[Rfam]
RNA sequence: UAACGAUAAUAGCAAAUUUACUGAAAGGUAAAGACGCAAAGCUGAGGGCCUAACGCUGAAAUAGCUACGGUAGCCUAGUUACCGAA
Numbered sequence: 001u002a003a004c005g006a007u008a009a010u011a012g013c014a015a016a017u018u019u020a021c022u023g024a025a026a027g028g029u030a031a032a033g034a035c036g037c038a039a040a041g042c043u044g045a046g047g048g049c050c051u052a053a054c055g056c057u058g059a060a061a062u063a064g065c066u067a068c069g070g071u072a073g074c075c076u077a078g079u080u081a082c083c084g085a086a
Stems, first nucleotide, its partner, number of pairs: 012037002017032006040080004045076003048071003055065004
c-di-GMP-I riboswitch aptamer: an 86-nucleotide sequence from Aquibacillus koreensis. Rfam links the family to the GO term cyclic-di-GMP binding. About the family: GEMM was predicted in a large-scale screen for bacterial structured RNA regulatory elements. The base pairs follow the family's consensus structure, which is taken from published work. It scores 81 bits against the family's covariance model.